[Rfam]
RNA sequence: UGUUCAGUAAGAUAUGUUUGAUAUUCUUGGUUGUGGAUUACCAUUCAACCAAGAAUCAGACAUAUAAGUACUGAGGC
Numbered sequence: 001u002g003u004u005c006a007g008u009a010a011g012a013u014a015u016g017u018u019u020g021a022u023a024u025u026c027u028u029g030g031u032u033g034u035g036g037a038u039u040a041c042c043a044u045u046c047a048a049c050c051a052a053g054a055a056u057c058a059g060a061c062a063u064a065u066a067a068g069u070a071c072u073g074a075g076g077c
Stems, first nucleotide, its partner, number of pairs: 005073005012065011024053002029050005
This 77-nucleotide sequence from Strigamia maritima belongs to the Rfam family "mir-190 microRNA precursor family". Gene Ontology terms of the family: RISC complex and miRNA-mediated post-transcriptional gene silencing. Clan: mir-50 clan. Pairs were carried over by alignment from the consensus structure, which was predicted with RNAalifold. The literature on the family includes a 2006 paper in Nucleic Acids Res by Kloosterman et al., "Cloning and expression of new microRNAs from zebrafish". NCBI's taxonomy places the organism under Eukaryota, Arthropoda, Pleurostigmophora, Linotaeniidae, Strigamia.